Purine riboswitch aptamer: a 102-nucleotide RNA from Neobacillus massiliamazoniensis. Taxonomically the source falls in Neobacillus (Bacteria, Bacillota, Bacilli, Bacillaceae). Rfam 15.1 lists 4,097 matches to the family in 1,411 species. About the family: Riboswitches are metabolite binding domains within certain messenger RNAs that serve as precision sensors for their corresponding targets. Allosteric rearrangement of mRNA structure is mediated by ligand binding, and this results in modulation of gene expression. It scores 82 bits against the family's covariance model.
[Rfam]
RNA sequence: UCUAAAUAGGUACGUUACCUUCAUAUAUCCUCGAUAAUAUGGGUCGAGAGUCUCUACCGGGUCGCCGUAAAGGACCUGACUAUGAAGGCGGAAUGAAGUUUU
Numbered sequence: 001u002c003u004a005a006a007u008a009g010g011u012a013c014g015u016u017a018c019c020u021u022c023a024u025a026u027a028u029c030c031u032c033g034a035u036a037a038u039a040u041g042g043g044u045c046g047a048g049a050g051u052c053u054c055u056a057c058c059g060g061g062u063c064g065c066c067g068u069a070a071a072g073g074a075c076c077u078g079a080c081u082a083u084g085a086a087g088g089c090g091g092a093a094u095g096a097a098g099u100u101u102u
Stems, first nucleotide, its partner, number of pairs: 018088008030048006058078006